[Rfam]
RNA sequence: UGAACUGGAGCGGGAGAGCCCCCACGCAGAGUCACCUGUGAUGGGGCACCGAAGGAGCAACCUCCCCCGGAAUCUCUCAGGUACAGCUACCGCUUCGGUCAG
Numbered sequence: 001u002g003a004a005c006u007g008g009a010g011c012g013g014g015a016g017a018g019c020c021c022c023c024a025c026g027c028a029g030a031g032u033c034a035c036c037u038g039u040g041a042u043g044g045g046g047c048a049c050c051g052a053a054g055g056a057g058c059a060a061c062c063u064c065c066c067c068c069g070g071a072a073u074c075u076c077u078c079a080g081g082u083a084c085a086g087c088u089a090c091c092g093c094u095u096c097g098g099u100c101a102g
Stems, first nucleotide, its partner, number of pairs: 006097008020046004048082003051078002055076003061070002
The record is a 102-nucleotide RNA from Herbihabitans rhizosphaerae, which matches "Glycine riboswitch aptamer" in Rfam.
Gene Ontology term of the family: glycine biosynthetic process.
The pairing is the family consensus, mapped onto this sequence.
The source organism's lineage runs through Bacteria, Bacillati, Actinomycetota, Pseudonocardiaceae and Herbihabitans.